The record is a 138-nucleotide RNA sequence from Cylicocyclus nassatus, which matches "U4 spliceosomal RNA" in Rfam. The family's RNA type in Rfam is spliceosomal small nuclear RNA. About the family: U4 small nuclear RNA (U4 snRNA) is a component of the major U2-dependent spliceosome. Pairs were carried over by alignment from the consensus structure, which is taken from published work. Clan: U4 clan. The source organism's lineage runs through Eukaryota, Opisthokonta, Protostomia, Chromadorea and Cylicocyclus.
[Rfam]
RNA sequence: AGCUUUGCGCAGAGGCGAUAACGUGACCAAUGAGGCUCUGCCGAGGUGCGUUUAUUGCUGGUUGAAAACUUAUACCAAUUGCCCGCGAUGGCGCCUGAACAAGGCUGUCAUACGCAAUUUUUGAACGCCCGAGGGGGC
Numbered sequence: 001a002g003c004u005u006u007g008c009g010c011a012g013a014g015g016c017g018a019u020a021a022c023g024u025g026a027c028c029a030a031u032g033a034g035g036c037u038c039u040g041c042c043g044a045g046g047u048g049c050g051u052u053u054a055u056u057g058c059u060g061g062u063u064g065a066a067a068a069c070u071u072a073u074a075c076c077a078a079u080u081g082c083c084c085g086c087g088a089u090g091g092c093g094c095c096u097g098a099a100c101a102a103g104g105c106u107g108u109c110a111u112a113c114g115c116a117a118u119u120u121u122u123g124a125a126c127g128c129c130c131g132a133g134g135g136g137g138c
Stems, first nucleotide, its partner, number of pairs: 020052005026047003034042003085115003088111006095104002127138004